[Rfam]
RNA sequence: GGUAGUAGCAAAUAUUCAAAAGAGAACUUUGAAGACUGAAGUGGAGAAAGGUUCCGUGUGAACAGCAGUUGGACACGGGUCAGUCGAUCCUAAAGAGUAAGGGAAACCUGGUAAUGCACAGUGUGCGGACUCUGAAAGGGCAUCCGGUUAAUAUUCCGGAACUGGGAGGUGGAAUAAGCGGCAACGCAAGACAACUUGGUGACGUUGGUAGGAACCCUAGAAAGAGAUGUCUUUUCUUUUUAACCAAACAACAACCUUGGAAACGGAUGAACCGGAGAAGAGGUUUGGGAUGGGCAAAGCACUGCUUCAGCAGUGUCUGGAGCGUUUCUAACGACCCGUGAAAAACCAAGGGACUAAUUUUCACACCUAGUCGUACUCAUAACCGCAGCAGGUCUCCAAGGUGAACAGCCUCUAGUUGA
Numbered sequence: 001g002g003u004a005g006u007a008g009c010a011a012a013u014a015u016u017c018a019a020a021a022g023a024g025a026a027c028u029u030u031g032a033a034g035a036c037u038g039a040a041g042u043g044g045a046g047a048a049a050g051g052u053u054c055c056g057u058g059u060g061a062a063c064a065g066c067a068g069u070u071g072g073a074c075a076c077g078g079g080u081c082a083g084u085c086g087a088u089c090c091u092a093a094a095g096a097g098u099a100a101g102g103g104a105a106a107c108c109u110g111g112u113a114a115u116g117c118a119c120a121g122u123g124u125g126c127g128g129a130c131u132c133u134g135a136a137a138g139g140g141c142a143u144c145c146g147g148u149u150a151a152u153a154u155u156c157c158g159g160a161a162c163u164g165g166g167a168g169g170u171g172g173a174a175u176a177a178g179c180g181g182c183a184a185c186g187c188a189a190g191a192c193a194a195c196u197u198g199g200u201g202a203c204g205u206u207g208g209u210a211g212g213a214a215c216c217c218u219a220g221a222a223a224g225a226g227a228u229g230u231c232u233u234u235u236c237u238u239u240u241u242a243a244c245c246a247a248a249c250a251a252c253a254a255c256c257u258u259g260g261a262a263a264c265g266g267a268u269g270a271a272c273c274g275g276a277g278a279a280g281a282g283g284u285u286u287g288g289g290a291u292g293g294g295c296a297a298a299g300c301a302c303u304g305c306u307u308c309a310g311c312a313g314u315g316u317c318u319g320g321a322g323c324g325u326u327u328c329u330a331a332c333g334a335c336c337c338g339u340g341a342a343a344a345a346c347c348a349a350g351g352g353a354c355u356a357a358u359u360u361u362c363a364c365a366c367c368u369a370g371u372c373g374u375a376c377u378c379a380u381a382a383c384c385g386c387a388g389c390a391g392g393u394c395u396c397c398a399a400g401g402u403g404a405a406c407a408g409c410c411u412c413u414a415g416u417u418g419a
Stems, first nucleotide, its partner, number of pairs: 015033006034417004043397004049377002054078006063071002085373003089139002094133002096112001098110001100109003116126003143160005163369004169364004173359002178187003195350006204335004209330007217320003220240006244293003254284005264274003300315006383392002399411004
RNA: Eukaryotic large subunit ribosomal RNA, nucleotides 1488 to 1906